[Rfam]
Rfam assigns this 131-nucleotide RNA from Pseudobacteroides cellulosolvens to the family "FMN riboswitch aptamer (RFN element)". The base pairs follow the family's consensus structure, which is taken from published work. The match comes from Rfam's covariance-model search (116 bits).
RNA sequence: AUAGGUCUUCAGGGAUAGGUGUAAUUCCUUACCGGCGGUAGGCAGCAAAGCUGUGAGCCCGCGAGCUUUUAUAGAGCAGAUCCGGUCAAAGUCCGGAGCCGACAGUAAAGUCUGGAUGGAAGAAGAUGUUA
Numbered sequence: 001a002u003a004g005g006u007c008u009u010c011a012g013g014g015a016u017a018g019g020u021g022u023a024a025u026u027c028c029u030u031a032c033c034g035g036c037g038g039u040a041g042g043c044a045g046c047a048a049a050g051c052u053g054u055g056a057g058c059c060c061g062c063g064a065g066c067u068u069u070u071a072u073a074g075a076g077c078a079g080a081u082c083c084g085g086u087c088a089a090a091g092u093c094c095g096g097a098g099c100c101g102a103c104a105g106u107a108a109a110g111u112c113u114g115g116a117u118g119g120a121a122g123a124a125g126a127u128g129u130u131a
Stems, first nucleotide, its partner, number of pairs: 003129001005127006017029003031111002033101002035062004057099002065077003081097005103114003
Dot-bracket structure: ..(.((((((......(((.......))).[[((((((..................[[))))..(((.......)))...(((((.......)))))]])).(((....]]))).......)))))).)..